[Rfam]
RNA sequence: CGCACUAUUUUUUAAACCUAUUGAUGGAAAUUUUCACCACCUUAGGUUACGCUGUAGUGCCAGAGAAAUCCCUUGGUGCCUGUCCUAGCACAGCUAAUUGCCCAUUCAGCUUGUGCUUUGGCGAUGGUGUCAAGGAACAUGA
Dot-bracket structure: .(((((((......((((....(.(((.........))).)...)))).....)))))))........(.(((.((((((....(..(((.(((..(........)..)))..)))......)..)))))).))).).....
RNA: Small nucleolar RNA SNORA46
Organism: Vombatus ursinus